This 114-nucleotide RNA sequence from Polymorphum gilvum belongs to the Rfam family "EcpR1". By type it is a small RNA. The sequence is in the family's curated seed alignment. NCBI's taxonomy places the organism under Bacteria, Pseudomonadati, Paracoccaceae, Polymorphum, Polymorphum gilvum. Rfam's curators write: Perviously named SmelC291, SmrC10, or Sra33. According to its overproduction phenotype it was renamed Elongated Cell Phenotype RNA1. Induced by stress,EcpR1 negatively regulates cell cycle master regulatory genes dnaA and gcrA at post-transcriptional level by base pairing between its strongly conserved GC-rich loop and the target mRNAs.
[Rfam]
RNA sequence: AAUCCCUACGGAGCGCUCAGGUCCGCCGCAUCUCCUGGGUCCGUGGGGUAGGCCGGCGAGGAAGGGAGCCGAAGAGUGGCCUCCUCGUGUCGUUCGCUUCCCGCCGGCCGCCUC
Numbered sequence: 001a002a003u004c005c006c007u008a009c010g011g012a013g014c015g016c017u018c019a020g021g022u023c024c025g026c027c028g029c030a031u032c033u034c035c036u037g038g039g040u041c042c043g044u045g046g047g048g049u050a051g052g053c054c055g056g057c058g059a060g061g062a063a064g065g066g067a068g069c070c071g072a073a074g075a076g077u078g079g080c081c082u083c084c085u086c087g088u089g090u091c092g093u094u095c096g097c098u099u100c101c102c103g104c105c106g107g108c109c110g111c112c113u114c
Stems, first nucleotide, its partner, number of pairs: 004048007016039006051109008060100002